[Rfam]
The record is a 79-nucleotide RNA sequence from Rhamnella rubrinervis, which matches "Small nucleolar RNA Z155" in Rfam. The family has 8 seed sequences and 429 matches in Rfam 15.1. It is annotated as a C/D-box small nucleolar RNA. A search with the family's covariance model found it, with a score of 45 bits. The organism belongs to Rhamnella, within Eukaryota. The literature on the family includes a 2003 paper in Nucleic Acids Res by Chen et al., "The high diversity of snoRNAs in plants: identification and comparative study of 120 snoRNA genes from Oryza sativa".

RNA sequence: CAUUGAGGUGGUGACAUUAUUUUCAAUUGCAUUUGCAUUAUGUACUUAAAGAAAUAAGACUACAAUUAUCUGAUUAAUG
Numbered sequence: 001c002a003u004u005g006a007g008g009u010g011g012u013g014a015c016a017u018u019a020u021u022u023u024c025a026a027u028u029g030c031a032u033u034u035g036c037a038u039u040a041u042g043u044a045c046u047u048a049a050a051g052a053a054a055u056a057a058g059a060c061u062a063c064a065a066u067u068a069u070c071u072g073a074u075u076a077a078u079g
Stems, first nucleotide, its partner, number of pairs: 001079006